[Rfam]
RNA sequence: AGCUUUGCGCAGUGGCAGUAUCGUAGCCAAUGAGGUUUAUCCGAGGCGCGAUUAUUGCUAAUUAAAGGAGGUGACUAAGAUGGGAGGACACACCUGGAAGAGUAGCUGCUUUCACCUCAGUCUUGGGAGUGACCUUCAAGUUUUGGGGGUUUUACCCAAC
Numbered sequence: 001a002g003c004u005u006u007g008c009g010c011a012g013u014g015g016c017a018g019u020a021u022c023g024u025a026g027c028c029a030a031u032g033a034g035g036u037u038u039a040u041c042c043g044a045g046g047c048g049c050g051a052u053u054a055u056u057g058c059u060a061a062u063u064a065a066a067g068g069a070g071g072u073g074a075c076u077a078a079g080a081u082g083g084g085a086g087g088a089c090a091c092a093c094c095u096g097g098a099a100g101a102g103u104a105g106c107u108g109c110u111u112u113c114a115c116c117u118c119a120g121u122c123u124u125g126g127g128a129g130u131g132a133c134c135u136u137c138a139a140g141u142u143u144u145g146g147g148g149g150u151u152u153u154a155c156c157c158a159a160c
Base pairs, nucleotide, nucleotide: 020052021051022050023049024048026047027046028045034042035041084137085136086135087133089131090130091129093127094126095125096124152159153158
Shown here is a 160-nucleotide RNA sequence from Felis catus, a member of the family "U4 spliceosomal RNA".
By type it is a spliceosomal small nuclear RNA.
Its family is annotated with U4 snRNP and spliceosomal tri-snRNP complex assembly in the Gene Ontology.
The family has 177 seed sequences and 32,178 matches in Rfam 15.1.
About the family: U4 small nuclear RNA (U4 snRNA) is a component of the major U2-dependent spliceosome.
The organism belongs to Felis, within Eukaryota.